This 144-nucleotide sequence from Rhododendron williamsianum belongs to the Rfam family "U12 minor spliceosomal RNA". Pairs were carried over by alignment from the consensus structure. Taxonomically the source falls in Rhododendron (Eukaryota, Mesangiospermae, eudicotyledons, Ericaceae).
[Rfam]
RNA sequence: UUGCCUUAAACUAAUGAGUAAGGAAAACAAACGAGCGGCGGGAGCUGCUCGAGCGCCUUCGUGUGCAUGAAAUUUUGGAGGGGUUAAAAGGCUGGCCGAGCGUGACGCUGCCUACCUAGCAGAACUCGCUCGUGCGGGCCUCCC
Number, nucleotide and partner (000 for none) at each position: 001u000002u000003g000004c023005c022006u021007u020008a019009a000010a000011c000012u000013a000014a000015u000016g000017a000018g000019u008020a007021a006022g005023g004024a000025a000026a000027a000028c000029a000030a000031a000032c051033g050034a049035g048036c047037g046038g045039c044040g000041g000042g000043a000044g039045c038046u037047g036048c035049u034050c033051g032052a000053g066054c065055g064056c063057c000058u000059u000060c000061g000062u000063g056064u055065g054066c053067a000068u000069g000070a000071a000072a000073u000074u000075u000076u000077g000078g000079a000080g000081g000082g000083g144084u000085u000086a000087a000088a000089a141090g140091g139092c138093u137094g000095g135096c000097c132098g131099a000100g129101c128102g127103u000104g125105a000106c000107g000108c122109u121110g120111c119112c000113u000114a000115c000116c000117u000118a000119g111120c110121a109122g108123a000124a000125c104126u000127c102128g101129c100130u000131c098132g097133u000134g000135c095136g000137g093138g092139c091140c090141u089142c000143c000144c083